The record is a 139-nucleotide sequence from Erpetoichthys calabaricus, which matches "Small nucleolar RNA SNORA29" in Rfam.
It is annotated as an H/ACA-box small nucleolar RNA.
ACA29 is a member of the H/ACA class of snoRNA that guide the sites of modification of uridines to pseudouridines.
Clan: SNORA20 clan.
[Rfam]
RNA sequence: AUUCCCAUUUUAGUACCGUUCAUCCGAUCUAGCAGGUUGAGUGGCUAUGCUAAUGGGAAAGAGAAUCUCUGCCAUUGUCUGAAGAAGAGUCUGGCAUCAUAAACCACCUCUUCUAUAUGAAAUGACAGGACAAGACAUU
Numbered sequence: 001a002u003u004c005c006c007a008u009u010u011u012a013g014u015a016c017c018g019u020u021c022a023u024c025c026g027a028u029c030u031a032g033c034a035g036g037u038u039g040a041g042u043g044g045c046u047a048u049g050c051u052a053a054u055g056g057g058a059a060a061g062a063g064a065a066u067c068u069c070u071g072c073c074a075u076u077g078u079c080u081g082a083a084g085a086a087g088a089g090u091c092u093g094g095c096a097u098c099a100u101a102a103a104c105c106a107c108c109u110c111u112u113c114u115a116u117a118u119g120a121a122a123u124g125a126c127a128g129g130a131c132a133a134g135a136c137a138u139u
Base pairs, nucleotide, nucleotide: 004057005056006055007054016044017043018042019041071126073124074123086114087113088112089111